[Rfam]
RNA sequence: CUCUGCCACGCUUGUAAGUCGCUUUGGAUAAAAGCGUCUGCCAAAUUAAUAAAU
Numbered sequence: 001c002u003c004u005g006c007c008a009c010g011c012u013u014g015u016a017a018g019u020c021g022c023u024u025u026g027g028a029u030a031a032a033a034g035c036g037u038c039u040g041c042c043a044a045a046u047u048a049a050u051a052a053a054u
Stems, first nucleotide, its partner, number of pairs: 013043001014041003020036006

UnaL2 LINE 3' element: a 54-nucleotide RNA from Megalops atlanticus.
It scores 55 bits against the family's covariance model.
Rfam's curators write: The eel long interspersed element (LINE) UnaL2 and its partner short interspersed element (SINE) share a conserved 3' tail containing a stem-loop that is critical for their retrotransposition.
NCBI's taxonomy places the organism under Eukaryota, Metazoa, Deuterostomia, Elopomorpha, Megalops.
The family's consensus secondary structure is taken from published work.
The family's RNA type in Rfam is cis-regulatory element.
On this family, see Baba et al., RNA 2004: "Solution structure of an RNA stem-loop derived from the 3' conserved region of eel LINE UnaL2".